[Rfam]
About this RNA
The family of this 194-nucleotide RNA from Oryza glumipatula is "MIR812 microRNA precursor family".
RNA sequence: UUUAAAUGUAACUAUGAGUUUCCGUAUCCAACUUUGAUUUUCCGUUUUAUUUGAAAAUUUUUUAUAAUUAGUAUUUUUAUUGUUAUGAGAUGAUAAAAUAUGAAUAGUAAUUUAUGCGUGACUUAUAUUUUAGUUUUUUUUUAAAUAAGACGAUAAAUGAUAGUCACACUUAAAAUGGAAAUGGGGCGGCGGAG
Numbered sequence: 001u002u003u004a005a006a007u008g009u010a011a012c013u014a015u016g017a018g019u020u021u022c023c024g025u026a027u028c029c030a031a032c033u034u035u036g037a038u039u040u041u042c043c044g045u046u047u048u049a050u051u052u053g054a055a056a057a058u059u060u061u062u063u064a065u066a067a068u069u070a071g072u073a074u075u076u077u078u079a080u081u082g083u084u085a086u087g088a089g090a091u092g093a094u095a096a097a098a099u100a101u102g103a104a105u106a107g108u109a110a111u112u113u114a115u116g117c118g119u120g121a122c123u124u125a126u127a128u129u130u131u132a133g134u135u136u137u138u139u140u141u142u143a144a145a146u147a148a149g150a151c152g153a154u155a156a157a158u159g160a161u162a163g164u165c166a167c168a169c170u171u172a173a174a175a176u177g178g179a180a181a182u183g184g185g186g187c188g189g190c191g192g193a194g
Stems, first nucleotide, its partner, number of pairs: 027168001031164003035160001037158004043152008